[Rfam]
RNA: Small Cajal body specific RNA 6
Nucleotides: 263
Base pairs, nucleotide, nucleotide: 001263002262003261004260037245038244039243041241048221049220050219051218053216054215061207062206063205064204065121066120067119068118069117070116078107079106080105081104082103083102084101085100086099129187131186132185133184134183135182144171145170146169147168148167149166152163
Number, partner (000 for none) and nucleotide at each position: 001263g002262g003261u004260c005000u006000g007000u008000g009000a010000u011000g012000a013000a014000u015000a016000g017000u018000a019000a020000a021000a022000g023000g024000u025000c026000u027000g028000a029000u030000u031000a032000u033000c034000c035000c036000a037245a038244g039243a040000c041241u042000u043000g044000c045000a046000c047000u048221u049220c050219c051218a052000u053216g054215a055000c056000c057000u058000u059000u060000u061207c062206u063205c064204c065121c066120a067119g068118c069117a070116g071000u072000u073000u074000c075000u076000c077000a078107c079106c080105a081104g082103u083102c084101a085100c086099a087000g088000c089000a090000c091000a092000g093000u094000a095000a096000u097000g098000g099086u100085g101084u102083g103082a104081c105080u106079g107078g108000c109000a110000g111000a112000g113000u114000g115000u116070u117069u118068g119067c120066u121065g122000a123000c124000a125000g126000c127000u128000u129187g130000a131186g132185a133184u134183g135182u136000g137000u138000u139000c140000a141000g142000g143000u144171c145170a146169u147168g148167u149166u150000a151000a152163c153000c154000u155000g156000g157000a158000g159000u160000a161000u162000u163152g164000g165000a166149g167148a168147c169146a170145u171144g172000a173000c174000u175000g176000g177000g178000a179000u180000c181000a182135g183134c184133a185132u186131c187129c188000a189000a190000c191000a192000g193000u194000u195000c196000u197000g198000c199000u200000u201000g202000a203000a204064g205063g206062a207061g208000u209000u210000u211000g212000g213000g214000g215054u216053c217000u218051u219050g220049g221048a222000u223000u224000g225000c226000u227000u228000u229000a230000a231000c232000u233000g234000g235000a236000c237000a238000u239000g240000u241041g242000a243039u244038c245037u246000g247000a248000c249000u250000u251000u252000u253000c254000u255000g256000c257000u258000g259000a260004g261003a262002c263001c